[Rfam]
RNA sequence: GCGUGGGUCGGCCCCCGUCGAAACUGCGGCUUCGGACAAUUCGGCGGAGGCCAGGGGACACCGUCGCCUCAUUCCCCGCGGGCGGCGGAUCCGGUCCGGGGGGCGUGCCGACGCCCCCCGGACCGAU
Numbered sequence: 001g002c003g004u005g006g007g008u009c010g011g012c013c014c015c016c017g018u019c020g021a022a023a024c025u026g027c028g029g030c031u032u033c034g035g036a037c038a039a040u041u042c043g044g045c046g047g048a049g050g051c052c053a054g055g056g057g058a059c060a061c062c063g064u065c066g067c068c069u070c071a072u073u074c075c076c077c078g079c080g081g082g083c084g085g086c087g088g089a090u091c092c093g094g095u096c097c098g099g100g101g102g103g104c105g106u107g108c109c110g111a112c113g114c115c116c117c118c119c120g121g122a123c124c125g126a127u
Stems, first nucleotide, its partner, number of pairs: 002125001006092002008089001010052004015047008054059001061088009093124013
The family of this 127-nucleotide sequence from Streptantibioticus cattleyicolor is "Streptomyces RNA 4115". A search with the family's covariance model found it, with a score of 60 bits. From the family's description: Identified by deep sequencing of transcriptome at the end of exponential growth phase. Sequencing size consistent with notrthern blot size. Streptomyces specific.